[Rfam]
Rfam assigns this 66-nucleotide RNA sequence from Crenobacter luteus to the family "Fluoride riboswitch aptamer (crcB RNA motif)". Gene Ontology terms of the family: positive regulation of gene expression and response to fluoride. Pairs were carried over by alignment from the consensus structure, which is taken from published work. A search with the family's covariance model found it, with a score of 53 bits.
RNA sequence: GCUGCUGCAGGAGAUGGCAUUCCUCCUCAUAACCGCCCCGAUCGGGCUGAUGAUGCCUAUGGUAUU
Numbered sequence: 001g002c003u004g005c006u007g008c009a010g011g012a013g014a015u016g017g018c019a020u021u022c023c024u025c026c027u028c029a030u031a032a033c034c035g036c037c038c039c040g041a042u043c044g045g046g047c048u049g050a051u052g053a054u055g056c057c058u059a060u061g062g063u064a065u066u
Stems, first nucleotide, its partner, number of pairs: 010026004016057006035047004